RNA sequence: GCUCACGAGAGGCAGUGGAAAGCACCUGGCUGGCUGCCCGGCAACCUCGACUCCGUCCGAGGUGCUCCAGGGGAAGAGCCGGCCGGGCGGCGUCCGCCGUCCGGCAAGGACGGAGG
Numbered sequence: 001g002c003u004c005a006c007g008a009g010a011g012g013c014a015g016u017g018g019a020a021a022g023c024a025c026c027u028g029g030c031u032g033g034c035u036g037c038c039c040g041g042c043a044a045c046c047u048c049g050a051c052u053c054c055g056u057c058c059g060a061g062g063u064g065c066u067c068c069a070g071g072g073g074a075a076g077a078g079c080c081g082g083c084c085g086g087g088c089g090g091c092g093u094c095c096g097c098c099g100u101c102c103g104g105c106a107a108g109g110a111c112g113g114a115g116g
Stems, first nucleotide, its partner, number of pairs: 001079004009039001011038006021031002040066003045062003049057002082105010
A member of the RNA family "SAM (S-adenosyl methionine) riboswitch aptamer" from Geodermatophilus sabuli, 116 nucleotides long. The match comes from Rfam's covariance-model search (86 bits). The literature on the family includes a 2008 paper in RNA by Weinberg et al., "The aptamer core of SAM-IV riboswitches mimics the ligand-binding site of SAM-I riboswitches". Its Rfam clan is "SAM clan". SAM-IV is a mRNA element that regulates gene expression via direct sensing of S-adenosylmethionine (SAM or AdoMet).